[Rfam]
RNA sequence: CUCGGUCCUCGGUAGUGACUCCCAGAUCGCGGCAUCUGCCGCGAAGGCUGAGGGUCUCGAUCGAAGACCGGC
Numbered sequence: 001c002u003c004g005g006u007c008c009u010c011g012g013u014a015g016u017g018a019c020u021c022c023c024a025g026a027u028c029g030c031g032g033c034a035u036c037u038g039c040c041g042c043g044a045a046g047g048c049u050g051a052g053g054g055u056c057u058c059g060a061u062c063g064a065a066g067a068c069c070g071g072c
Stems, first nucleotide, its partner, number of pairs: 002071006009064005017056005023050003027046001028043006
Dot-bracket structure: .((((((.(((((...(((((.(((.(((((((....))))))..).))).)))))...))))).)))))).
RNA: Actino-pnp RNA
Organism: Nocardioides luteus